[Rfam]
Nucleotides: 150
Base pairs, nucleotide, nucleotide: 012035013034014033015032016031018029019028020027021026040112041111042110043109044066045065046064053062054061055060069093070092071091072090073089074088095108096107097106098105116145117144118143119142120141121140122139123138124137125136126135127134
Number, partner (000 for none) and nucleotide at each position: 001000a002000u003000g004000c005000g006000a007000u008000g009000a010000g011000c012035c013034g014033a015032a016031u017000u018029u019028g020027g021026c022000a023000u024000u025000a026021g027020c028019c029018a030000u031016a032015u033014u034013u035012g036000c037000g038000c039000a040112u041111g042110g043109g044066g045065g046064u047000c048000a049000u050000u051000a052000a053062c054061g055060c056000a057000g058000g059000a060055g061054c062053g063000g064046a065045c066044c067000u068000u069093g070092g071091u072090a073089g074088a075000u076000u077000g078000u079000g080000u081000g082000a083000a084000c085000c086000u087000u088074u089073c090072u091071a092070u093069c094000u095108c096107a097106c098105c099000c100000a101000u102000c103000u104000g105098g106097g107096u108095g109043c110042c111041c112040a113000u114000u115000u116145u117144g118143g119142u120141g121140g122139g123138g124137c125136u126135g127134g128000u129000u130000u131000u132000a133000u134127c135126c136125a137124g138123u139122c140121c141120c142119a143118c144117c145116a146000u147000u148000u149000u150000u